Shown here is a 219-nucleotide RNA sequence from Eremothecium cymbalariae, a member of the family "Small nucleolar RNA snR31". A search with the family's covariance model found it, with a score of 72 bits. The family's RNA type in Rfam is H/ACA-box small nucleolar RNA.

[Rfam]
RNA sequence: CAAAUAGAAUAAGCAUCCGUUAGUAGCCUUGGGACCAUUGCAUGUUAUCAUCAAUUGUAUUGGUUGGUUGGCUUGAUUACUAUCUGUUUCAGAGAGUAUCCGGAUGAUAGAUAAAUGGUUUUCGAAAGACGUAUCUCCAGCUAUAGAAGGGUAGAUAGUGUCUUUUAUGCUAUGCUUCCCGUCAAAAUGAUAUAGUUGGUCAUGAUUCUUACGACAUUA
Numbered sequence: 001c002a003a004a005u006a007g008a009a010u011a012a013g014c015a016u017c018c019g020u021u022a023g024u025a026g027c028c029u030u031g032g033g034a035c036c037a038u039u040g041c042a043u044g045u046u047a048u049c050a051u052c053a054a055u056u057g058u059a060u061u062g063g064u065u066g067g068u069u070g071g072c073u074u075g076a077u078u079a080c081u082a083u084c085u086g087u088u089u090c091a092g093a094g095a096g097u098a099u100c101c102g103g104a105u106g107a108u109a110g111a112u113a114a115a116u117g118g119u120u121u122u123c124g125a126a127a128g129a130c131g132u133a134u135c136u137c138c139a140g141c142u143a144u145a146g147a148a149g150g151g152u153a154g155a156u157a158g159u160g161u162c163u164u165u166u167a168u169g170c171u172a173u174g175c176u177u178c179c180c181g182u183c184a185a186a187a188u189g190a191u192a193u194a195g196u197u198g199g200u201c202a203u204g205a206u207u208c209u210u211a212c213g214a215c216a217u218u219a
Stems, first nucleotide, its partner, number of pairs: 014106006022081005028075001030071001032069002034064004046057002082099002085095001087093001123213002126210001128208002137199008151176001154173001156172005